The family of this 104-nucleotide RNA sequence from Bacillus sp. 165 is "Purine riboswitch aptamer". Rfam describes the family as follows. Riboswitches are metabolite binding domains within certain messenger RNAs that serve as precision sensors for their corresponding targets. A search with the family's covariance model found it, with a score of 66 bits. The organism belongs to Bacillus, within Bacteria.
[Rfam]
RNA sequence: AAUAAUCUUACAUACUAUUCUCGUAUAUACUCGGUAAUAUGGUCUGAGUGUUUCUACUUGGUUCCCAUUGAAAGAACUAGACUACGGAUUAAAGUAUUCGGCUG
Numbered sequence: 001a002a003u004a005a006u007c008u009u010a011c012a013u014a015c016u017a018u019u020c021u022c023g024u025a026u027a028u029a030c031u032c033g034g035u036a037a038u039a040u041g042g043u044c045u046g047a048g049u050g051u052u053u054c055u056a057c058u059u060g061g062u063u064c065c066c067a068u069u070g071a072a073a074g075a076a077c078u079a080g081a082c083u084a085c086g087g088a089u090u091a092a093a094g095u096a097u098u099c100g101g102c103u104g
Stems, first nucleotide, its partner, number of pairs: 021087005029049006058080007